Overview: Shown here is an 87-nucleotide sequence from Eremothecium gossypii, a member of the family "Small nucleolar RNA snR57". By type it is a C/D-box small nucleolar RNA. For this family Rfam cites "A computational screen for methylation guide snoRNAs in yeast" (Lowe and Eddy, Science, 1999). Lineage of the source: Eukaryota > saccharomyceta > Saccharomycotina > Eremothecium > Eremothecium gossypii.
[Rfam]
RNA sequence: UUUCUAAUGAUUAUAUCGCUAUUUCUCACUGAGGAAGUACAUGCAGGACAAAUUGUUAAUUAGGAAUUCUUCGUUUAUGAUCGGAGA
Numbered sequence: 001u002u003u004c005u006a007a008u009g010a011u012u013a014u015a016u017c018g019c020u021a022u023u024u025c026u027c028a029c030u031g032a033g034g035a036a037g038u039a040c041a042u043g044c045a046g047g048a049c050a051a052a053u054u055g056u057u058a059a060u061u062a063g064g065a066a067u068u069c070u071u072c073g074u075u076u077a078u079g080a081u082c083g084g085a086g087a
Base pairs, nucleotide, nucleotide: 001087002086003085004084